[Rfam]
The family of this 46-nucleotide sequence from Lentisphaera araneosa is "Acido-Lenti-1 RNA".
RNA sequence: CCUAGCUCUCACGAGCUCGGCUAAUUUAUACCGUGCUUUCAGCACU
Numbered sequence: 001c002c003u004a005g006c007u008c009u010c011a012c013g014a015g016c017u018c019g020g021c022u023a024a025u026u027u028a029u030a031c032c033g034u035g036c037u038u039u040c041a042g043c044a045c046u
Stems, first nucleotide, its partner, number of pairs: 001020002004017005033045005
Lineage of the source: Bacteria > Lentisphaeria > Lentisphaeraceae > Lentisphaera > Lentisphaera araneosa. Rfam 15.1 lists 2,607 matches to the family in 171 species.